[Rfam]
RNA: Guanidine-II riboswitch aptamer (mini-ykkC)
Organism: Microvirga thermotolerans
RNA sequence: GCGGGGACGGCCCCGCUCCCCCACAGCAAAGGUAGGGACGACCCUG
Dot-bracket structure: ((((((....))))))................(((((....)))))